Shown here is a 46-nucleotide sequence from Lacticaseibacillus nasuensis, a member of the family "PreQ1 (pre queuosine) riboswitch aptamer". For this family Rfam cites "A riboswitch separated from its ribosome-binding site still regulates translation" (Schroeder et al., Nucleic Acids Res, 2023). The source organism's lineage runs through Bacteria, Lactobacillales, Lactobacillaceae, Lacticaseibacillus and Lacticaseibacillus nasuensis. This family is a bacterial riboswitch that binds to the metabolite preQ1, an intermediate in the biosynthesis of the modified nucleoside queuosine from GTP. One example of this riboswitch is located in the leader of the Bacillus subtilis ykvJKLM (queCDEF) operon which encodes four genes necessary for queuosine production. PreQ1 binding to the riboswitch aptamer is thought to induce premature transcription termination within the leader to down-regulate expression of these genes.

Nucleotides: 046
Stems, first nucleotide, its partner, number of pairs: 006028005016038001
Number, partner (000 for none) and nucleotide at each position: 001000g002000c003000a004000c005000a006028u007027g008026u009025g010024g011000u012000u013000c014000g015000c016038a017000a018000u019000c020000c021000a022000u023000c024010c025009c026008a027007c028006a029000a030000u031000a032000a033000a034000a035000a036000a037000c038016u039000a040000g041000g042000a043000g044000g045000a046000c